[Rfam]
RNA sequence: ACCUCAUCCAGAGGGGCAGAGGGACACGGCCCGAUGAAGCCCCGGCAACCACCCCACCCGUCGCGCCGGUCGCAAUCGGCCAGCCGGGGCAGGUGCCAAUUCCGUCCCCGUCGCACCGCGCGGCGCAGGGAAAGAUGAGAG
Numbered sequence: 001a002c003c004u005c006a007u008c009c010a011g012a013g014g015g016g017c018a019g020a021g022g023g024a025c026a027c028g029g030c031c032c033g034a035u036g037a038a039g040c041c042c043c044g045g046c047a048a049c050c051a052c053c054c055c056a057c058c059c060g061u062c063g064c065g066c067c068g069g070u071c072g073c074a075a076u077c078g079g080c081c082a083g084c085c086g087g088g089g090c091a092g093g094u095g096c097c098a099a100u101u102c103c104g105u106c107c108c109c110g111u112c113g114c115a116c117c118g119c120g121c122g123g124c125g126c127a128g129g130g131a132a133a134g135a136u137g138a139g140a141g
Base pairs, nucleotide, nucleotide: 003139004138005137006136007135008134013043014042015041016040017039021032022031023030026105027104028103029102044097045096046095047094049093050092052088053087054086101133106130107129108128110126111125
RNA: SAM riboswitch aptamer (S box leader)